[Rfam]
Nucleotides: 101
Stems, first nucleotide, its partner, number of pairs: 006089005011053004017026002033047005059082004063076004
Number, partner (000 for none) and nucleotide at each position: 001000a002000c003000g004000u005000a006089c007088c008087a009086c010085a011053g012052g013051g014050g015000g016000a017026g018025c019000c020000g021000c022000c023000g024000u025018g026017c027000u028000g029000a030000g031000a032000g033047u034046g035045a036044a037043c038000a039000a040000a041000u042000u043037g044036u045035u046034c047033a048000g049000a050014c051013c052012c053011u054000u055000c056000g057000a058000a059082c060081c061080u062079g063076u064075u065074a066073g067000u068000u069000a070000a071000c072000g073066c074065u075064a076063g077000c078000g079062u080061a081060g082059g083000a084000a085010u086009g087008u088007g089006g090000g091000a092000a093000u094000a095000g096000u097000a098000g099000c100000a101000u
Shown here is a 101-nucleotide RNA sequence from Priestia megaterium, a member of the family "TPP riboswitch aptamer (THI element)". The organism belongs to Priestia megaterium, within Bacteria. The family's consensus secondary structure is taken from published work. The match comes from Rfam's covariance-model search (61 bits).